RNA sequence: GUUCUGUGGUGAUGAAUUUUGAAAAUUUUCACAUGUCAGACUUCAGAGAUUUCUCUGGAAAUCCAUGAGAAGAGAAUUCAUUUCUGAGCAGAAG
Numbered sequence: 001g002u003u004c005u006g007u008g009g010u011g012a013u014g015a016a017u018u019u020u021g022a023a024a025a026u027u028u029u030c031a032c033a034u035g036u037c038a039g040a041c042u043u044c045a046g047a048g049a050u051u052u053c054u055c056u057g058g059a060a061a062u063c064c065a066u067g068a069g070a071a072g073a074g075a076a077u078u079c080a081u082u083u084c085u086g087a088g089c090a091g092a093a094g
Base pairs, nucleotide, nucleotide: 002093003092004091005090006089007088048063049062050061051060